Notes:
The family of this 67-nucleotide sequence from Ornithinibacillus halophilus is "Ribosomal protein L13 leader". The organism belongs to Ornithinibacillus, within Bacteria. Gene Ontology term of the family: regulation of gene expression. By type it is a cis-regulatory leader.
RNA sequence: GGCAUUUUAUUUCUAAAAACCGCGAUUAGCCCCGGAACUAAUUGUGUUUGAAAUAUAGAAAUACGAA
Numbered sequence: 001g002g003c004a005u006u007u008u009a010u011u012u013c014u015a016a017a018a019a020c021c022g023c024g025a026u027u028a029g030c031c032c033c034g035g036a037a038c039u040a041a042u043u044g045u046g047u048u049u050g051a052a053a054u055a056u057a058g059a060a061a062u063a064c065g066a067a
Stems, first nucleotide, its partner, number of pairs: 008063007021046009
Record summary
For this family Rfam cites "Diverse mechanisms for regulating ribosomal protein synthesis in Escherichia coli" (Zengel and Lindahl, Prog Nucleic Acid Res Mol Biol, 1994).